[Rfam]
Nucleotides: 114
Base pairs, nucleotide, nucleotide: 001015002014003013004012005011016041017040018039019038020037021036023034024033025032026031046113048090049089052087053086054080055079057077058076059075061073062072063071095110096109097108098107099106
Number, partner (000 for none) and nucleotide at each position: 001015g002014g003013u004012g005011g006000u007000c008000g009000g010000u011005c012004c013003a014002c015001c016041g017040g018039a019038g020037c021036c022000g023034c024033c025032a026031u027000a028000c029000a030000g031026g032025u033024g034023g035000a036021g037020g038019u039018u040017u041016c042000a043000a044000a045000c046113u047000a048090c049089c050000u051000u052087a053086a054080g055079g056000u057077g058076u059075u060000g061073u062072g063071g064000a065000c066000a067000a068000a069000a070000g071063c072062c073061a074000g075059g076058g077057u078000a079055u080054u081000g082000a083000g084000c085000a086053u087052u088000u089049g090048g091000a092000a093000a094000a095110g096109g097108u098107g099106g100000u101000u102000u103000a104000a105000u106099c107098u108097g109096u110095c111000a112000a113046g114000u
Record summary: The family of this 114-nucleotide sequence from Proteiniclasticum sediminis is "Group II catalytic intron D1-D4-2". Lineage of the source: Bacteria > Bacillati > Eubacteriales > Clostridiaceae > Proteiniclasticum. The pairing is the family consensus, mapped onto this sequence. The match comes from Rfam's covariance-model search (76 bits). Rfam describes the family as follows. Group II introns are found in rRNA, tRNA and mRNA of organelles in fungi, plants and protists, and also in mRNA in bacteria. On this family, see Chu et al., EMBO J 2001: "Control of branch-site choice by a group II intron".